[Rfam]
RNA sequence: AUUGCAAUGAUGAUUUAUACUGGUUAAGGCAGUGGCGGUCUUUUGGUCGCCGUGAGCCGUUAAACCAAAAAACGACUUCUCUUUCCACUGAGCAUU
Numbered sequence: 001a002u003u004g005c006a007a008u009g010a011u012g013a014u015u016u017a018u019a020c021u022g023g024u025u026a027a028g029g030c031a032g033u034g035g036c037g038g039u040c041u042u043u044u045g046g047u048c049g050c051c052g053u054g055a056g057c058c059g060u061u062a063a064a065c066c067a068a069a070a071a072a073c074g075a076c077u078u079c080u081c082u083u084u085c086c087a088c089u090g091a092g093c094a095u096u
Stems, first nucleotide, its partner, number of pairs: 001096001003094003